[Rfam]
RNA sequence: GCCGGUCCUCGGUUGUGGCUCUCGGGCACACGUGUGGCCGGGCGCCUCCAUCGAAGACCGGC
Dot-bracket structure: (((((((.(((((...(((.(((((.(((....))).))))).)))...))))).)))))))
This 62-nucleotide sequence from Phytoactinopolyspora mesophila belongs to the Rfam family "Actino-pnp RNA". NCBI's taxonomy places the organism under Bacteria, Bacillati, Jiangellales, Jiangellaceae, Phytoactinopolyspora. It is annotated as a cis-regulatory element.